Notes
Shown here is a 97-nucleotide RNA sequence from Macaca mulatta, a member of the family "mir-4650 microRNA precursor family". Rfam 15.1 lists 30 matches to the family in 15 species. The sequence is in the family's curated seed alignment.

[Rfam]
RNA sequence: CUGCAGAUAUUGUCAGGCCUCAUUCUACCUUCCAAGUCUCAGAGCCUUGGAAGGUAGAAUGAUUGGAAGGUAGAAUGAGGCCUGAUAAUCUCUACAG
Numbered sequence: 001c002u003g004c005a006g007a008u009a010u011u012g013u014c015a016g017g018c019c020u021c022a023u024u025c026u027a028c029c030u031u032c033c034a035a036g037u038c039u040c041a042g043a044g045c046c047u048u049g050g051a052a053g054g055u056a057g058a059a060u061g062a063u064u065g066g067a068a069g070g071u072a073g074a075a076u077g078a079g080g081c082c083u084g085a086u087a088a089u090c091u092c093u094a095c096a097g
Stems, first nucleotide, its partner, number of pairs: 001097003005093003009089002013085020